[Rfam]
RNA sequence: CGCCUAUGAUGACAAAUUAAAAGGCUUGUUUCUCAAAACAUUCGCAGUGGCCGCCUGAGAGCUUUCGCCUUGCCAGGCUUGAGAGCUUGUGCUGCUUACCAAAACCUUCCUUGGAUGUCUGAGGCU
Numbered sequence: 001c002g003c004c005u006a007u008g009a010u011g012a013c014a015a016a017u018u019a020a021a022a023g024g025c026u027u028g029u030u031u032c033u034c035a036a037a038a039c040a041u042u043c044g045c046a047g048u049g050g051c052c053g054c055c056u057g058a059g060a061g062c063u064u065u066c067g068c069c070u071u072g073c074c075a076g077g078c079u080u081g082a083g084a085g086c087u088u089g090u091g092c093u094g095c096u097u098a099c100c101a102a103a104a105c106c107u108u109c110c111u112u113g114g115a116u117g118u119c120u121g122a123g124g125c126u
Stems, first nucleotide, its partner, number of pairs: 002125003061086006
Small nucleolar RNA SNORD14: a 126-nucleotide RNA sequence from Dendrobium catenatum.
On this family, see Samarsky et al., Nucleic Acids Res 1996: "An essential domain in Saccharomyces cerevisiae U14 snoRNA is absent in vertebrates, but conserved in other yeasts".
By type it is a C/D-box small nucleolar RNA.
Taxonomically the source falls in Dendrobium (Eukaryota, Streptophytina, Magnoliopsida, Dendrobiinae).
The match comes from Rfam's covariance-model search (85 bits).
The family's consensus secondary structure was predicted with PFOLD.
U14 small nucleolar RNA (U14 snoRNA) is required for early cleavages of eukaryotic precursor rRNAs. In yeasts, this molecule possess a stem-loop region (known as the Y-domain) which is essential for function. A similar structure, but with a different consensus sequence, is found in plants, but is absent in vertebrates.